Plastid-psbA-1 3UTR RNA: a 113-nucleotide RNA from Rhododendron simsii. Taxonomically the source falls in Rhododendron (Eukaryota, Magnoliopsida, Pentapetalae, Ericoideae). Pairs were carried over by alignment from the consensus structure, which was predicted with LocARNA. Clan: Plastid-psbA 3UTR RNA clan.
RNA sequence: UUGAAGCUCCAUCUACAACCGGAUAAGACUUUGUUCCUAGUCUAUAGGAGUUUUUGAAAGUAAAAGUAAGGGAGCAAUCACCUCUUGUUCUAUCAAGAGUGCAUUGCUCCUUU
Numbered sequence: 001u002u003g004a005a006g007c008u009c010c011a012u013c014u015a016c017a018a019c020c021g022g023a024u025a026a027g028a029c030u031u032u033g034u035u036c037c038u039a040g041u042c043u044a045u046a047g048g049a050g051u052u053u054u055u056g057a058a059a060g061u062a063a064a065a066g067u068a069a070g071g072g073a074g075c076a077a078u079c080a081c082c083u084c085u086u087g088u089u090c091u092a093u094c095a096a097g098a099g100u101g102c103a104u105u106g107c108u109c110c111u112u113u
Stems, first nucleotide, its partner, number of pairs: 008023003068113011082099005

By type it is a cis-regulatory element. Rfam describes the family as follows. Plastid psbA-1 is a non-coding RNA (ncRNA) present in plastids.